[Rfam]
RNA: Flavivirus 3'UTR stem loop IV
Organism: Orthoflavivirus murrayense
RNA sequence: CCCGUGUCAGGUCACAUUGUGCCACCUUGCCAGAAGGUGCAACCUGCGAGGCCCCAGGUGGACUGGGU
Numbered sequence: 001c002c003c004g005u006g007u008c009a010g011g012u013c014a015c016a017u018u019g020u021g022c023c024a025c026c027u028u029g030c031c032a033g034a035a036g037g038u039g040c041a042a043c044c045u046g047c048g049a050g051g052c053c054c055c056a057g058g059u060g061g062a063c064u065g066g067g068u
Stems, first nucleotide, its partner, number of pairs: 006040001008046005013021003023039004028035001053067005